Shown here is an 80-nucleotide sequence from Sus scrofa, a member of the family "mir-455 microRNA precursor family". The source organism's lineage runs through Eukaryota, Opisthokonta, Chordata, Eutheria and Sus. For this family Rfam cites "Discovery and profiling of bovine microRNAs from immune-related and embryonic tissues" (Coutinho et al., Physiol Genomics, 2007). Rfam links the family to the GO terms male sex differentiation, sensory perception of sound and RISC complex. The base pairs follow the family's consensus structure, which was predicted with RNAalifold.
RNA sequence: UGGCGUGAGGGUAUGUGCCUUUGGACUACAUCGUGGAAGCCAGCACCAUGCAGUCCAUGGGCAUAUACACUUGCCUCAAG
Numbered sequence: 001u002g003g004c005g006u007g008a009g010g011g012u013a014u015g016u017g018c019c020u021u022u023g024g025a026c027u028a029c030a031u032c033g034u035g036g037a038a039g040c041c042a043g044c045a046c047c048a049u050g051c052a053g054u055c056c057a058u059g060g061g062c063a064u065a066u067a068c069a070c071u072u073g074c075c076u077c078a079a080g
Base pairs, nucleotide, nucleotide: 012067013066014065015064016063017062018061019060020059022057023056024055025054026053027052029050030049031048033046034045035044